About this RNA: The family of this 69-nucleotide RNA sequence is "int-alpA RNA". The family's consensus secondary structure is taken from published work. The family's RNA type in Rfam is small RNA.

RNA sequence: UAACCGGAUAGCUCGACGGAGCAAAAAGCGGGAGUCGUUACCCCGUCUCCGGUUAUUCCUUUCGUAACG
Numbered sequence: 001u002a003a004c005c006g007g008a009u010a011g012c013u014c015g016a017c018g019g020a021g022c023a024a025a026a027a028g029c030g031g032g033a034g035u036c037g038u039u040a041c042c043c044c045g046u047c048u049c050c051g052g053u054u055a056u057u058c059c060u061u062u063c064g065u066a067a068c069g
Base pairs, nucleotide, nucleotide: 001055002054003053004052005051006050007049008048011022012021013020014019028046029045030044031043032042036069037068038067039066040065041064
Dot-bracket structure: ((((((((..((((....)))).....(((((...[[[[[[))))).))))))))........]]]]]]
Annotation: Acidobacteria (1 example), Planctomycetes (1 example), Proteobacteria.